[Rfam]
RNA sequence: ACCGGCGAUGGGGAUGGAGUUCCCCCGAAACCGCCCGUGAGGGCUGAUGACUCCUACCGCACG
Dot-bracket structure: .........[[[[..((((((.]]]]......((((....))))....)))))).........
Numbered sequence: 001a002c003c004g005g006c007g008a009u010g011g012g013g014a015u016g017g018a019g020u021u022c023c024c025c026c027g028a029a030a031c032c033g034c035c036c037g038u039g040a041g042g043g044c045u046g047a048u049g050a051c052u053c054c055u056a057c058c059g060c061a062c063g
Stems, first nucleotide, its partner, number of pairs: 010026004016054006033044004
Description: A member of the RNA family "Fluoride riboswitch aptamer (crcB RNA motif)" from Allobosea spartocytisi, 63 nucleotides long. Lineage of the source: Bacteria > Pseudomonadota > Hyphomicrobiales > Alloboseaceae > Allobosea. Pairs were carried over by alignment from the consensus structure, which is taken from published work.